[Rfam]
RNA sequence: UUCGUGCCCGGAGAUGGCAUUCCUCCCCGAACCGCCGCGCUGGCCGCAGCUGAUGAUGCCUACAGACAC
Numbered sequence: 001u002u003c004g005u006g007c008c009c010g011g012a013g014a015u016g017g018c019a020u021u022c023c024u025c026c027c028c029g030a031a032c033c034g035c036c037g038c039g040c041u042g043g044c045c046g047c048a049g050c051u052g053a054u055g056a057u058g059c060c061u062a063c064a065g066a067c068a069c
Stems, first nucleotide, its partner, number of pairs: 010026004016060006034050002037047003